[Rfam]
RNA sequence: GGAGCGGCUUCUGGAGAGACCGCGGGAUUCCGCGGCGCCGAAGGGUUCACCAUCUCAGGCAAAAGGACAGAAGAGUACUA
Numbered sequence: 001g002g003a004g005c006g007g008c009u010u011c012u013g014g015a016g017a018g019a020c021c022g023c024g025g026g027a028u029u030c031c032g033c034g035g036c037g038c039c040g041a042a043g044g045g046u047u048c049a050c051c052a053u054c055u056c057a058g059g060c061a062a063a064a065g066g067a068c069a070g071a072a073g074a075g076u077a078c079u080a
Base pairs, nucleotide, nucleotide: 008073009072010071011070012069013068020035021034022033023032037060038059039058040056041055044054045053046052

This 80-nucleotide RNA sequence from Paenibacillus faecis belongs to the Rfam family "Glycine riboswitch aptamer".
Lineage of the source: Bacteria > Bacillati > Bacillota > Paenibacillaceae > Paenibacillus.
The base pairs follow the family's consensus structure.